RNA sequence: GGAGACUCCUGGUCGGUUAAAAACGGCCACGUCCUGUGGCCAACACCGACACUCGAACGUCCUGUUCU
Numbered sequence: 001g002g003a004g005a006c007u008c009c010u011g012g013u014c015g016g017u018u019a020a021a022a023a024c025g026g027c028c029a030c031g032u033c034c035u036g037u038g039g040c041c042a043a044c045a046c047c048g049a050c051a052c053u054c055g056a057a058c059g060u061c062c063u064g065u066u067c068u
Stems, first nucleotide, its partner, number of pairs: 012050006026040005055067004
This 68-nucleotide RNA from Salinibacillus xinjiangensis belongs to the Rfam family "Bacillaceae-1 RNA". Rfam classes the family as a small RNA.